A member of the RNA family "Streptomyces sRNA 4677" from Streptomyces roseus, 227 nucleotides long. It scores 117 bits against the family's covariance model. The literature on the family includes a 2014 paper in PLoS One by Hindra et al., "Complex intra-operonic dynamics mediated by a small RNA in Streptomyces coelicolor". It is annotated as a small RNA. The source organism's lineage runs through Bacteria, Bacillati, Actinomycetota, Streptomycetaceae and Streptomyces. The pairing is the family consensus, mapped onto this sequence.

RNA sequence: CCUCUCGUGGUCAAAGACCAAAGAACCGGGGAAAGAACCAGACCGAACCCCUCCAGCCUCCCGUUCGACCGCAAUCGCUCGGUCGGGUGAAUCUGUCCAACUGGACUGGAUUUGCGUGGGGUUGGCUGGCACAUGCUCGCCGCGACAACUCCAGACAUGAGACGACCCCCGGCGGGACGGCAAUCCCGGCCGAGGGUCUGAUCCACGAGGAAGAAGAGACCUUCCCG
Numbered sequence: 001c002c003u004c005u006c007g008u009g010g011u012c013a014a015a016g017a018c019c020a021a022a023g024a025a026c027c028g029g030g031g032a033a034a035g036a037a038c039c040a041g042a043c044c045g046a047a048c049c050c051c052u053c054c055a056g057c058c059u060c061c062c063g064u065u066c067g068a069c070c071g072c073a074a075u076c077g078c079u080c081g082g083u084c085g086g087g088u089g090a091a092u093c094u095g096u097c098c099a100a101c102u103g104g105a106c107u108g109g110a111u112u113u114g115c116g117u118g119g120g121g122u123u124g125g126c127u128g129g130c131a132c133a134u135g136c137u138c139g140c141c142g143c144g145a146c147a148a149c150u151c152c153a154g155a156c157a158u159g160a161g162a163c164g165a166c167c168c169c170c171g172g173c174g175g176g177a178c179g180g181c182a183a184u185c186c187c188g189g190c191c192g193a194g195g196g197u198c199u200g201a202u203c204c205a206c207g208a209g210g211a212a213g214a215a216g217a218g219a220c221c222u223u224c225c226c227g
Base pairs, nucleotide, nucleotide: 006063007062075090076089077088078087079086080085107139108138109137164198165197166196167195168194170192171191172190174187175186176185177184209225210224211223212222213221